[Rfam]
RNA: DUF3800-VII RNA
RNA sequence: UAUGAGUAAGCGUGGGAGAUGUAGAGGCAGCCUGUUUUAGGUAGCAGCCCGCAUGGGUGGGAUCCUCGGUUCCUAGGACUCACAUUUGA
Numbered sequence: 001u002a003u004g005a006g007u008a009a010g011c012g013u014g015g016g017a018g019a020u021g022u023a024g025a026g027g028c029a030g031c032c033u034g035u036u037u038u039a040g041g042u043a044g045c046a047g048c049c050c051g052c053a054u055g056g057g058u059g060g061g062a063u064c065c066u067c068g069g070u071u072c073c074u075a076g077g078a079c080u081c082a083c084a085u086u087u088g089a
Stems, first nucleotide, its partner, number of pairs: 001084001003082005011076001013075004021070002024067003027045002030042004048057003
Dot-bracket structure: (.(((((...(.((((....((.(((((.((((.....)))).))..(((....))).......))).)).))))).))))).).....